[Rfam]
RNA sequence: UAAAUUAGAAUAUGGACAACUCAUAUAUGCCCAUGAAAUGGAUGGGCGUUUCUACCGACUACCAAAACAGUUGACUAUGAGGCUUAUUUAAACAAGC
Numbered sequence: 001u002a003a004a005u006u007a008g009a010a011u012a013u014g015g016a017c018a019a020c021u022c023a024u025a026u027a028u029g030c031c032c033a034u035g036a037a038a039u040g041g042a043u044g045g046g047c048g049u050u051u052c053u054a055c056c057g058a059c060u061a062c063c064a065a066a067a068c069a070g071u072u073g074a075c076u077a078u079g080a081g082g083c084u085u086a087u088u089u090a091a092a093c094a095a096g097c
Stems, first nucleotide, its partner, number of pairs: 020081006029047006056073005
Source information:
Purine riboswitch aptamer: a 97-nucleotide RNA sequence from Agrilactobacillus composti. A reference for the family is Mandal et al. (2003), "Riboswitches Control Fundamental Biochemical Pathways in Bacillus subtilis and Other Bacteria", Cell. The match comes from Rfam's covariance-model search (55 bits). The organism belongs to Agrilactobacillus composti, within Bacteria.